Notes
Rfam assigns this 130-nucleotide sequence from Centropus unirufus to the family "Small Cajal body specific RNA 4".

[Rfam]
RNA sequence: ACUGGAGGACUCAUCAGACCGAGCCUGAAGAGUGAGGCUCGGAUAACAGGAGCCUCCUAAAACAAGUGGGAUGGAGAGAGCAGUCCUACUUCCAGAAAGAGCACAGGGCGGGCUGUACCAUCCAACACUG
Numbered sequence: 001a002c003u004g005g006a007g008g009a010c011u012c013a014u015c016a017g018a019c020c021g022a023g024c025c026u027g028a029a030g031a032g033u034g035a036g037g038c039u040c041g042g043a044u045a046a047c048a049g050g051a052g053c054c055u056c057c058u059a060a061a062a063c064a065a066g067u068g069g070g071a072u073g074g075a076g077a078g079a080g081c082a083g084u085c086c087u088a089c090u091u092c093c094a095g096a097a098a099g100a101g102c103a104c105a106g107g108g109c110g111g112g113c114u115g116u117a118c119c120a121u122c123c124a125a126c127a128c129u130g
Stems, first nucleotide, its partner, number of pairs: 003059001004057005017044001019042001021040006068123003079114002081111001083109005091103001093101001
For this family Rfam cites "Cajal body-specific small nuclear RNAs: a novel class of 2'-O-methylation and pseudouridylation guide RNAs" (Darzacq et al., EMBO J, 2002). Rfam's curators write: scaRNAs are a specific class of small nuclear RNAs which localise to the Cajal bodies and guide the modification of RNA polymerase II transcribed spliceosomal RNAs U1, U2, U4, U5 and U12. ACA26 belongs to the H/ACA box class of guide RNAs as it has the predicted hairpin-hinge-hairpin-tail structure, conserved H/ACA-box motifs and is found associated with GAR1. The family's RNA type in Rfam is small Cajal body RNA. It scores 78 bits against the family's covariance model. Lineage of the source: Eukaryota > Bilateria > Sauria > Dinosauria > Centropus.